This 126-nucleotide RNA sequence from Lentibacillus kapialis belongs to the Rfam family "Ribosomal protein L20 leader". Lineage of the source: Bacteria > Bacillati > Bacilli > Caryophanales > Lentibacillus. The literature on the family includes a 1994 paper in Prog Nucleic Acid Res Mol Biol by Zengel and Lindahl, "Diverse mechanisms for regulating ribosomal protein synthesis in Escherichia coli". The family's RNA type in Rfam is cis-regulatory leader. The match comes from Rfam's covariance-model search (78 bits). Rfam's curators write: This family is a putative r-protein leader autoregulatory structure found in B. subtilis and other low-GC Gram-positive bacteria. It is located in the 5' untranslated regions of mRNAs encoding initiation factor 3 followed by ribosomal proteins L35 and L20 (infC-rpmI-rplT). A Rho-independent transcription terminator structure that is probably involved in regulation is included at the 3' end.

RNA sequence: UGAGACAAGUAGAAGCACCCGCUUCUCACCUGAUCGACGCAUGAUGCAGUCGGCUGGUUCUGAACUUUUCAAUAGAGAUUAUUGGAGACGUGUGGGUGCAGUAUGUGCCGACACUUUUUAUUUGUG
Dot-bracket structure: ..........((((((....)))))).(((.....(((((.....)).)))....)))................................(((.((((((...)))))).))).............
Numbered sequence: 001u002g003a004g005a006c007a008a009g010u011a012g013a014a015g016c017a018c019c020c021g022c023u024u025c026u027c028a029c030c031u032g033a034u035c036g037a038c039g040c041a042u043g044a045u046g047c048a049g050u051c052g053g054c055u056g057g058u059u060c061u062g063a064a065c066u067u068u069u070c071a072a073u074a075g076a077g078a079u080u081a082u083u084g085g086a087g088a089c090g091u092g093u094g095g096g097u098g099c100a101g102u103a104u105g106u107g108c109c110g111a112c113a114c115u116u117u118u119u120a121u122u123u124g125u126g
Stems, first nucleotide, its partner, number of pairs: 011026006028058003036051003039047002091113003095109006